[Rfam]
RNA sequence: UGAAAAUUGAACGCUUAAGUAGUUAAUACAAGGGCGAGUUUUUUCUUGCAUCGCAUUGUGUGACCUACUUAAAUGACAAAUUUUCA
Dot-bracket structure: ..((((((...((.((((((((...((((((..((((.............)))).))))))...)))))))).))...))))))..
Shown here is an 86-nucleotide sequence from Drosophila virilis, a member of the family "mir-1002 microRNA precursor family".
Its family is annotated with RISC complex and miRNA-mediated post-transcriptional gene silencing in the Gene Ontology.
It is one of the family's seed sequences.
The family's consensus secondary structure was predicted with RNAalifold.